The family of this 81-nucleotide sequence from Tolumonas auensis is "antisense RNA of dnaA mRNA". Lineage of the source: Bacteria > Pseudomonadati > Aeromonadales > Aeromonadaceae > Tolumonas auensis. The family's consensus secondary structure was predicted with RNAfold. A search with the family's covariance model found it, with a score of 63 bits. Its family is annotated with regulation of mRNA stability in the Gene Ontology.
RNA sequence: CUUGGCAUUCGGCUUGCGAGCCCGGAUACCAUUGCCAACUGCAUGCAACAAGUGGGUUUUACCUAAACCGGUACCACCAUA
Numbered sequence: 001c002u003u004g005g006c007a008u009u010c011g012g013c014u015u016g017c018g019a020g021c022c023c024g025g026a027u028a029c030c031a032u033u034g035c036c037a038a039c040u041g042c043a044u045g046c047a048a049c050a051a052g053u054g055g056g057u058u059u060u061a062c063c064u065a066a067a068c069c070g071g072u073a074c075c076a077c078c079a080u081a
Stems, first nucleotide, its partner, number of pairs: 005042003009038001011036003016032001018030001020029001052077003056074002061072003